[Rfam]
RNA sequence: UGCGGUCCUCGGUAGUGGCUUUCGCUCUUCAAUGCGAAGAGCGCGAGUCUCGAUCGAAGACCAAG
Dot-bracket structure: (..((((.(((((...(((((.(((((((.......))))))).)))))...))))).))))..)
The record is a 65-nucleotide sequence from Paeniglutamicibacter gangotriensis, which matches "Actino-pnp RNA" in Rfam.
The family's consensus secondary structure is taken from published work.
The organism belongs to Paeniglutamicibacter gangotriensis, within Bacteria.